[Rfam]
RNA sequence: GUAACCGUGAGGUUAUAUCUGAAGAAAGCGAGACUACAAAACUCGGUACUGACCCUUCGGCUACGCUCAGGAUAAACCAAGCAGAAACCGUAUACAGAGGCAUAUUUACUUGGGUAAGCAAACACAUCAUUGUAACGCCCUAAGAACACAAAAAGGGUAAGUAUGUAGAUACGGCAGGGAUUGAGUGAAAGAAGAUGUU
Numbered sequence: 001g002u003a004a005c006c007g008u009g010a011g012g013u014u015a016u017a018u019c020u021g022a023a024g025a026a027a028g029c030g031a032g033a034c035u036a037c038a039a040a041a042c043u044c045g046g047u048a049c050u051g052a053c054c055c056u057u058c059g060g061c062u063a064c065g066c067u068c069a070g071g072a073u074a075a076a077c078c079a080a081g082c083a084g085a086a087a088c089c090g091u092a093u094a095c096a097g098a099g100g101c102a103u104a105u106u107u108a109c110u111u112g113g114g115u116a117a118g119c120a121a122a123c124a125c126a127u128c129a130u131u132g133u134a135a136c137g138c139c140c141u142a143a144g145a146a147c148a149c150a151a152a153a154a155g156g157g158u159a160a161g162u163a164u165g166u167a168g169a170u171a172c173g174g175c176a177g178g179g180a181u182u183g184a185g186u187g188a189a190a191g192a193a194g195a196u197g198u199u
Base pairs, nucleotide, nucleotide: 001016002015003014004013005012006011028199031196037191041186042185043184044183045182046181047179049177050176051175088174089173090172091171092170093169100166101165102164104162105161106160107159108158109157110156112140113139114138115137118133119132120131121130

A member of the RNA family "Group II catalytic intron D1-D4-3" from Gillisia limnaea, 199 nucleotides long.
The match comes from Rfam's covariance-model search (91 bits).
NCBI's taxonomy places the organism under Bacteria, Flavobacteriales, Flavobacteriaceae, Gillisia, Gillisia limnaea.
From the family's description: Group II introns are found in rRNA, tRNA and mRNA of organelles in fungi, plants and protists, and also in mRNA in bacteria.
The pairing is the family consensus, mapped onto this sequence.